[Rfam]
RNA sequence: UGCGCCGAAGCCGGGGCCUGAGCCCGGGCCACGCCGGCCAGGAACUCAUUGAGCUGCGCGUUCGGCCGGUGCUCAGCCUGCCCAGCCCCGGGCCCGCGCU
Numbered sequence: 001u002g003c004g005c006c007g008a009a010g011c012c013g014g015g016g017c018c019u020g021a022g023c024c025c026g027g028g029c030c031a032c033g034c035c036g037g038c039c040a041g042g043a044a045c046u047c048a049u050u051g052a053g054c055u056g057c058g059c060g061u062u063c064g065g066c067c068g069g070u071g072c073u074c075a076g077c078c079u080g081c082c083c084a085g086c087c088c089c090g091g092g093c094c095c096g097c098g099c100u
Base pairs, nucleotide, nucleotide: 002099003098004097005096007095011091012090013089014088015087016086017085019075020074021073022072023071024069025068027067028066029065030064033061034060037057038056045053046052047051

This 100-nucleotide sequence from Nannospalax galili belongs to the Rfam family "mir-1199 microRNA precursor family".
The family's consensus secondary structure was predicted with RNAalifold.
Lineage of the source: Eukaryota > Opisthokonta > Theria > Spalacinae > Nannospalax.